[Rfam]
RNA sequence: UUACUACCAAACCCUGUCUCCACCUCCACGGGGUGACCGCUGGGAGCUAUUUGUUAACAAAAUGCUGUUGAGGGAGAAGG
Numbered sequence: 001u002u003a004c005u006a007c008c009a010a011a012c013c014c015u016g017u018c019u020c021c022a023c024c025u026c027c028a029c030g031g032g033g034u035g036a037c038c039g040c041u042g043g044g045a046g047c048u049a050u051u052u053g054u055u056a057a058c059a060a061a062a063u064g065c066u067g068u069u070g071a072g073g074g075a076g077a078a079g080g
Base pairs, nucleotide, nucleotide: 013080014079015078017076019074020073021072022034023033024032045066046065047064050061051060052059053058
Overview:
This 80-nucleotide sequence from Hermetia illucens belongs to the Rfam family "drz-agam-1 ribozyme". The match comes from Rfam's covariance-model search (40 bits).